[Rfam]
RNA: Small nucleolar RNA SNORA63
RNA sequence: AAGCAGAAUUCAGACUACAAUAUAGCUGUUAAGUGCGAUGUUGUCAUUCCCCCUGCUCAAAAUAAAUUUGCUUCUUAACUAUACCUGUCUGCUAUACUCAAGUAGCAACCAGGAACACUUGGUCUCAUACAC
Numbered sequence: 001a002a003g004c005a006g007a008a009u010u011c012a013g014a015c016u017a018c019a020a021u022a023u024a025g026c027u028g029u030u031a032a033g034u035g036c037g038a039u040g041u042u043g044u045c046a047u048u049c050c051c052c053c054u055g056c057u058c059a060a061a062a063u064a065a066a067u068u069u070g071c072u073u074c075u076u077a078a079c080u081a082u083a084c085c086u087g088u089c090u091g092c093u094a095u096a097c098u099c100a101a102g103u104a105g106c107a108a109c110c111a112g113g114a115a116c117a118c119u120u121g122g123u124c125u126c127a128u129a130c131a132c
Stems, first nucleotide, its partner, number of pairs: 003056004017044007025036002084113004090107003